[Rfam]
RNA sequence: UGUCACAAGUUAGAGGCAGAAGCGCUCAUGGUGUGCCCCAAUCAGAUUCCAAUGAAUCUGCAAAUUCUGCU
Numbered sequence: 001u002g003u004c005a006c007a008a009g010u011u012a013g014a015g016g017c018a019g020a021a022g023c024g025c026u027c028a029u030g031g032u033g034u035g036c037c038c039c040a041a042u043c044a045g046a047u048u049c050c051a052a053u054g055a056a057u058c059u060g061c062a063a064a065u066u067c068u069g070c071u
Stems, first nucleotide, its partner, number of pairs: 013039001015037003018068004022034003043060007
A member of the RNA family "Mammalian CPEB3 ribozyme" from Alligator mississippiensis, 71 nucleotides long. The source organism's lineage runs through Eukaryota, Gnathostomata, Euteleostomi, Amniota and Alligator. The match comes from Rfam's covariance-model search (38 bits).